Rfam assigns this 102-nucleotide sequence from Triplophysa tibetana to the family "mir-454 microRNA precursor family". Lineage of the source: Eukaryota > Opisthokonta > Eumetazoa > Actinopteri > Triplophysa. Rfam links the family to the GO terms miRNA-mediated post-transcriptional gene silencing and RISC complex. Pairs were carried over by alignment from the consensus structure, which was predicted with RNAalifold. It scores 86 bits against the family's covariance model.

RNA sequence: UAUUAAGAUCCUAAUUCCUGGGACCCUAUCAGUAUUGCCUCUGCUGUCCACUGUGUUCAGAGUAGUGCAAUAUUGCUAAUAGGGUUUCAGGAUUUAGGUUUU
Numbered sequence: 001u002a003u004u005a006a007g008a009u010c011c012u013a014a015u016u017c018c019u020g021g022g023a024c025c026c027u028a029u030c031a032g033u034a035u036u037g038c039c040u041c042u043g044c045u046g047u048c049c050a051c052u053g054u055g056u057u058c059a060g061a062g063u064a065g066u067g068c069a070a071u072a073u074u075g076c077u078a079a080u081a082g083g084g085u086u087u088c089a090g091g092a093u094u095u096a097g098g099u100u101u102u
Stems, first nucleotide, its partner, number of pairs: 020088010030075009041065005